[Rfam]
RNA: Hepatitis C virus J7880 RNA
Organism: Orthohepacivirus hominis
RNA sequence: GUCAAGCAGGCAGCCUCCACGGUUAGCGCUAAGCUCCUCUCCAUCGAGGAGGCGUGUGCGCUGACCCCGCCCCAUUCCGCUAGAUCAAAGUACGGUUUUGGGGCGAAAGAGGUUCGCAGCUUG
Numbered sequence: 001g002u003c004a005a006g007c008a009g010g011c012a013g014c015c016u017c018c019a020c021g022g023u024u025a026g027c028g029c030u031a032a033g034c035u036c037c038u039c040u041c042c043a044u045c046g047a048g049g050a051g052g053c054g055u056g057u058g059c060g061c062u063g064a065c066c067c068c069g070c071c072c073c074a075u076u077c078c079g080c081u082a083g084a085u086c087a088a089a090g091u092a093c094g095g096u097u098u099u100g101g102g103g104c105g106a107a108a109g110a111g112g113u114u115c116g117c118a119g120c121u122u123g
Base pairs, nucleotide, nucleotide: 006120007119009117012114013113014112015111016110017109022065023064024063025062028057029056035050036049037048038047039046068103070101071100074097076095077094079091080090